[Rfam]
RNA sequence: CUCUUAUCCCGAGUCGGUGGAGGGACAGGCCCGAGGAAGCCCGGCAACCAACACUUAUAGUGAAAGCGCAAUGUUUGUUACUUGCUUCACGUUUUAUAUAGUGAAAAGGUGCUAACCUGCUGCAAGACGAUUGUCUUGAUCGAUAAGAG
Numbered sequence: 001c002u003c004u005u006a007u008c009c010c011g012a013g014u015c016g017g018u019g020g021a022g023g024g025a026c027a028g029g030c031c032c033g034a035g036g037a038a039g040c041c042c043g044g045c046a047a048c049c050a051a052c053a054c055u056u057a058u059a060g061u062g063a064a065a066g067c068g069c070a071a072u073g074u075u076u077g078u079u080a081c082u083u084g085c086u087u088c089a090c091g092u093u094u095u096a097u098a099u100a101g102u103g104a105a106a107a108g109g110u111g112c113u114a115a116c117c118u119g120c121u122g123c124a125a126g127a128c129g130a131u132u133g134u135c136u137u138g139a140u141c142g143a144u145a146a147g148a149g
Stems, first nucleotide, its partner, number of pairs: 001149008013042001016041003022032003026122003029118001043113004048109002052103004123138006